RNA sequence: GAGACACCCUUAUUGGGCAGGACUUGCUUCAGUGGGGCUUUGGUGCUCACUGAGUCUGCCCCUUCAGUGUAUAUCU
Numbered sequence: 001g002a003g004a005c006a007c008c009c010u011u012a013u014u015g016g017g018c019a020g021g022a023c024u025u026g027c028u029u030c031a032g033u034g035g036g037g038c039u040u041u042g043g044u045g046c047u048c049a050c051u052g053a054g055u056c057u058g059c060c061c062c063u064u065c066a067g068u069g070u071a072u073a074u075c076u
Stems, first nucleotide, its partner, number of pairs: 001075002004072001006070002009067002012064001015061005021056003029053008037044002